Rfam assigns this 198-nucleotide sequence from Dorcoceras hygrometricum to the family "MIR159 microRNA precursor family". NCBI's taxonomy places the organism under Eukaryota, Spermatophyta, eudicotyledons, lamiids, Dorcoceras. On this family, see Sunkar and Zhu, Plant Cell 2004: "Novel and stress-regulated microRNAs and other small RNAs from Arabidopsis". The base pairs follow the family's consensus structure, which was predicted with WAR.
RNA sequence: AAUGGCGUAAGAGAGCUUCCUUCAGCCCACUCAUGGGCGAAAUCCGGGGCUGAACUAGCUGCCGACUCAUUCAUUUAAACACUAGGUAGAAACCCCUGGAAGUUUGAUGCUACUGUGAUUGAGUGAAUGAUGCGGGAGAUAGUUUCACGCCACUCUCCUUCCGUGCUUGGACUGAAGGGAGCUCCUUUGCUACUUUCU
Numbered sequence: 001a002a003u004g005g006c007g008u009a010a011g012a013g014a015g016c017u018u019c020c021u022u023c024a025g026c027c028c029a030c031u032c033a034u035g036g037g038c039g040a041a042a043u044c045c046g047g048g049g050c051u052g053a054a055c056u057a058g059c060u061g062c063c064g065a066c067u068c069a070u071u072c073a074u075u076u077a078a079a080c081a082c083u084a085g086g087u088a089g090a091a092a093c094c095c096c097u098g099g100a101a102g103u104u105u106g107a108u109g110c111u112a113c114u115g116u117g118a119u120u121g122a123g124u125g126a127a128u129g130a131u132g133c134g135g136g137a138g139a140u141a142g143u144u145u146c147a148c149g150c151c152a153c154u155c156u157c158c159u160u161c162c163g164u165g166c167u168u169g170g171a172c173u174g175a176a177g178g179g180a181g182c183u184c185c186u187u188u189g190c191u192a193c194u195u196u197c198u
Stems, first nucleotide, its partner, number of pairs: 013184008023174003027170003036161001059138002062135003068129004076121001